[Rfam]
The record is a 76-nucleotide RNA sequence from Camelus dromedarius, which matches "mir-129 microRNA precursor family" in Rfam.
Lineage of the source: Eukaryota > Deuterostomia > Chordata > Sarcopterygii > Camelus.
The base pairs follow the family's consensus structure, which was predicted with RNAalifold.
RNA sequence: GUGAAACUUUUUGCGGUUCUGGGCUUGCUGUACAGUACUCAAUAGCCGGAAGAAGCCUUACCCCAAAAAGCAUUCG
Numbered sequence: 001g002u003g004a005a006a007c008u009u010u011u012u013g014c015g016g017u018u019c020u021g022g023g024c025u026u027g028c029u030g031u032a033c034a035g036u037a038c039u040c041a042a043u044a045g046c047c048g049g050a051a052g053a054a055g056c057c058u059u060a061c062c063c064c065a066a067a068a069a070g071c072a073u074u075c076g
Stems, first nucleotide, its partner, number of pairs: 007070007015062003022057003026053001028049002